The family of this 76-nucleotide RNA from Oryzias latipes is "Small nucleolar RNA SNORD2".
RNA sequence: GAGUGAUAUGAUGGCAUACCAUCUUUCGGGACUGACUGAAACAUGGAGAGUCCUUUUAUUGUUGUACUGAUCACUC
Numbered sequence: 001g002a003g004u005g006a007u008a009u010g011a012u013g014g015c016a017u018a019c020c021a022u023c024u025u026u027c028g029g030g031a032c033u034g035a036c037u038g039a040a041a042c043a044u045g046g047a048g049a050g051u052c053c054u055u056u057u058a059u060u061g062u063u064g065u066a067c068u069g070a071u072c073a074c075u076c
Base pairs, nucleotide, nucleotide: 001076002075003074004073005072006071
Dot-bracket structure: ((((((................................................................))))))
Taxonomically the source falls in Oryzias (Eukaryota, Euteleosteomorpha, Percomorphaceae, Adrianichthyoidei).
A search with the family's covariance model found it, with a score of 63 bits.
Rfam links the family to the GO terms RNA processing and nucleolus.